[Rfam]
Nucleotides: 098
Stems, first nucleotide, its partner, number of pairs: 003080004010069010030056008
Number, partner (000 for none) and nucleotide at each position: 001000u002000g003080a004079u005078u006077u007000c008000a009000a010069u011068u012067u013066c014065u015064a016063a017062u018061c019060a020000a021000u022000a023000c024000c025000c026000g027000g028000a029000u030056a031055a032054a033053u034052c035051u036050u037049u038000c039000g040000c041000c042000u043000u044000u045000u046000a047000c048000u049037a050036a051035a052034g053033a054032u055031u056030u057000c058000c059000g060019u061018g062017g063016u064015u065014a066013g067012g068011a069010g070000c071000a072000c073000u074000g075000a076000u077006g078005a079004g080003u081000c082000u083000a084000u085000a086000u087000g088000a089000c090000u091000u092000a093000u094000u095000u096000u097000u098000c